[Rfam]
RNA sequence: AGUGGGAGGGCGUUUGGCGAGCAAUCGCCGUUGCCUGACCGCGUGCCUUUUGCAUAAUGA
Numbered sequence: 001a002g003u004g005g006g007a008g009g010g011c012g013u014u015u016g017g018c019g020a021g022c023a024a025u026c027g028c029c030g031u032u033g034c035c036u037g038a039c040c041g042c043g044u045g046c047c048u049u050u051u052g053c054a055u056a057a058u059g060a
Base pairs, nucleotide, nucleotide: 002042003041004040005039008036009035010034011033012032046059048057
Dot-bracket structure: .((((..(((((...................)))))..))))...(.(........).).
Rfam assigns this 60-nucleotide part of an RNA from Luteitalea pratensis to the family "Bacterial large subunit ribosomal RNA". The literature on the family includes a 2002 paper in BMC Bioinformatics by Cannone et al., "The comparative RNA web (CRW) site: an online database of comparative sequence and structure information for ribosomal, intron, and other RNAs". The base pairs follow the family's consensus structure, which is taken from published work. The source organism's lineage runs through Bacteria, Pseudomonadati, Acidobacteriota, Vicinamibacterales and Luteitalea.